A member of the RNA family "malK-I RNA", 186 nucleotides long.
The family's consensus secondary structure is taken from published work.
[Rfam]
RNA sequence: UCGGUCGGACCCCGAGCACUCCACUGUAUGUGCGGGGAACGGCUGAAAAUAAAGGAGGAAACCAUCCCCUCGGCUUGGGGUGCGGCAGCGUGGAGACCUGUCGCAAUGCGCGGCCGACGUAUGCGCGGCGUGCGAGGCGGUUCGUUGAUGAAGAUCGGGACCGUUAAAGUCAAACGCAGUAUGGCA
Numbered sequence: 001u002c003g004g005u006c007g008g009a010c011c012c013c014g015a016g017c018a019c020u021c022c023a024c025u026g027u028a029u030g031u032g033c034g035g036g037g038a039a040c041g042g043c044u045g046a047a048a049a050u051a052a053a054g055g056a057g058g059a060a061a062c063c064a065u066c067c068c069c070u071c072g073g074c075u076u077g078g079g080g081u082g083c084g085g086c087a088g089c090g091u092g093g094a095g096a097c098c099u100g101u102c103g104c105a106a107u108g109c110g111c112g113g114c115c116g117a118c119g120u121a122u123g124c125g126c127g128g129c130g131u132g133c134g135a136g137g138c139g140g141u142u143c144g145u146u147g148a149u150g151a152a153g154a155u156c157g158g159g160a161c162c163g164u165u166a167a168a169g170u171c172a173a174a175c176g177c178a179g180u181a182u183g184g185c186a
Base pairs, nucleotide, nucleotide: 006041007040010037011036012035013034014033016031017030018029066080067079068078069077070173072171073170074169075168076167081105082104083103084102085101086100087099088098090097091096108133109132110131111130112129114128115127116126136165137164138163139162140161141160142159143158147156148155149154